[Rfam]
RNA: Glycine riboswitch aptamer
RNA sequence: CGGGCGCGCGCGGGAGAGCUCGCGGGGCAGGCCGGUUCCGGUCGGCCCGGCGGCGCCGAAGGAGCAACCGCCCCGGAAACUCUCAGGCAAAGGGACCGCGCGGGCCCU
Number, nucleotide and partner (000 for none) at each position: 001c000002g000003g000004g000005c000006g000007c102008g101009c100010g099011c098012g097013g096014g000015a000016g000017a000018g000019c000020u053021c052022g051023c050024g000025g000026g000027g000028c000029a000030g000031g000032c000033c000034g000035g000036u000037u000038c000039c000040g000041g000042u000043c000044g000045g000046c000047c000048c000049g000050g023051c022052g021053g020054c000055g088056c087057c086058g084059a083060a000061g000062g082063a081064g080065c000066a000067a000068c076069c075070g000071c000072c000073c000074c000075g069076g068077a000078a000079a000080c064081u063082c062083u059084c058085a000086g057087g056088c055089a000090a000091a000092g000093g000094g000095a000096c013097c012098g011099c010100g009101c008102g007103g000104g000105c000106c000107c000108u000